[Rfam]
RNA sequence: GGUUGGACAAACUAACGUUUGAUUCCGAGAAAAAUUUGUUUCUAGGGUGGGAAACU
Numbered sequence: 001g002g003u004u005g006g007a008c009a010a011a012c013u014a015a016c017g018u019u020u021g022a023u024u025c026c027g028a029g030a031a032a033a034a035u036u037u038g039u040u041u042c043u044a045g046g047g048u049g050g051g052a053a054a055c056u
Stems, first nucleotide, its partner, number of pairs: 003028003006023001008021004038055006
Shown here is a 56-nucleotide RNA sequence from Clostridium estertheticum, a member of the family "Na+ riboswitch aptamer (DUF1646)". Pairs were carried over by alignment from the consensus structure, which is taken from published work. The literature on the family includes a 2022 paper in Nat Chem Biol by White et al., "Na(+) riboswitches regulate genes for diverse physiological processes in bacteria". The match comes from Rfam's covariance-model search (46 bits).